[Rfam]
RNA sequence: UGUUUCAAGGAUUAAGCCAUGCAAGCCUAAGAGUAACCUAUUUCACAGGAGGUCUGCGAACGGCUCAUUAUAUCAGAGAUAAUUCACCGGGAAAAUAGCAGCUCACGCUGCCCAAUGGAUAACUUCGCGAAACGCGAAGCUAAUACAUGCAUGAAACGCAGCGCCCUCCAGUUGAGCGGGCGGGGGAAACCCCGGCCGCGGGGGGCCUGUGCGAAUGGUCGCUACGAAGAUCAACGCCGCUCGCGCGGCAGAGUCCAAGAGCGAUGAAUCAGACCAUUCAGCGAAAGCGCGCUUCGGCGCGCGUGUCCCGACAAGUCUCUGCCCUAUCAGCUCUGAUGGUAGUGUAUUGGACUACCAUGGCGAUAACGGGUACGGGGAAUUAGGGUUCGAUUCCGGAGAGGGAGCCUGAGAGAUAGCUACCACUUCUACGGAGGGCAGCAGGCGCGUAAAUUGCCCAAUGCCAAAUCGGCGAGGCAGCGAAGAAAAAUAGCGACCCCGCCUCUUCGGAGCGCGGGGAUUGCAAUGGGUGGUACGUAAACCCACCAACGAGUAUCAA
Numbered sequence: 001u002g003u004u005u006c007a008a009g010g011a012u013u014a015a016g017c018c019a020u021g022c023a024a025g026c027c028u029a030a031g032a033g034u035a036a037c038c039u040a041u042u043u044c045a046c047a048g049g050a051g052g053u054c055u056g057c058g059a060a061c062g063g064c065u066c067a068u069u070a071u072a073u074c075a076g077a078g079a080u081a082a083u084u085c086a087c088c089g090g091g092a093a094a095a096u097a098g099c100a101g102c103u104c105a106c107g108c109u110g111c112c113c114a115a116u117g118g119a120u121a122a123c124u125u126c127g128c129g130a131a132a133c134g135c136g137a138a139g140c141u142a143a144u145a146c147a148u149g150c151a152u153g154a155a156a157c158g159c160a161g162c163g164c165c166c167u168c169c170a171g172u173u174g175a176g177c178g179g180g181c182g183g184g185g186g187a188a189a190c191c192c193c194g195g196c197c198g199c200g201g202g203g204g205g206c207c208u209g210u211g212c213g214a215a216u217g218g219u220c221g222c223u224a225c226g227a228a229g230a231u232c233a234a235c236g237c238c239g240c241u242c243g244c245g246c247g248g249c250a251g252a253g254u255c256c257a258a259g260a261g262c263g264a265u266g267a268a269u270c271a272g273a274c275c276a277u278u279c280a281g282c283g284a285a286a287g288c289g290c291g292c293u294u295c296g297g298c299g300c301g302c303g304u305g306u307c308c309c310g311a312c313a314a315g316u317c318u319c320u321g322c323c324c325u326a327u328c329a330g331c332u333c334u335g336a337u338g339g340u341a342g343u344g345u346a347u348u349g350g351a352c353u354a355c356c357a358u359g360g361c362g363a364u365a366a367c368g369g370g371u372a373c374g375g376g377g378a379a380u381u382a383g384g385g386u387u388c389g390a391u392u393c394c395g396g397a398g399a400g401g402g403a404g405c406c407u408g409a410g411a412g413a414u415a416g417c418u419a420c421c422a423c424u425u426c427u428a429c430g431g432a433g434g435g436c437a438g439c440a441g442g443c444g445c446g447u448a449a450a451u452u453g454c455c456c457a458a459u460g461c462c463a464a465a466u467c468g469g470c471g472a473g474g475c476a477g478c479g480a481a482g483a484a485a486a487a488u489a490g491c492g493a494c495c496c497c498g499c500c501u502c503u504u505c506g507g508a509g510c511g512c513g514g515g516g517a518u519u520g521c522a523a524u525g526g527g528u529g530g531u532a533c534g535u536a537a538a539c540c541c542a543c544c545a546a547c548g549a550g551u552a553u554c555a556a
Base pairs, nucleotide, nucleotide: 003485004484005483006482009478010445016443017442018441020440021439022438025057026056030055031054032053037049038048064398065397066396074321075320076319079316080315083314084313089309090308091307092306115148116147117146123139124138125137126136127135128134158210159209160208161207165203166202167201168200215277216276217275218274219273220272230265231264232263238247239246240245287302288301289300290299291298292297323370324369325368330361331360332359336358337357338356339355340354341353342352343351373395374394375393376392377388378387379386380385400421401420403418404417405416423434424433425432426431451476453475454474455473459471460470461469462468491520492519493518494516495515496514497513498512499511500509501508502507527547528546529544
A member of the RNA family "Eukaryotic small subunit ribosomal RNA" from Perkinsela sp. CCAP 1560/4, 556 nucleotides of a longer RNA. Its family is annotated with structural constituent of ribosome and ribosome in the Gene Ontology. Lineage of the source: Eukaryota > Discoba > Euglenozoa > Perkinselidae > Perkinsela. A search with the family's covariance model found it, with a score of 1397 bits.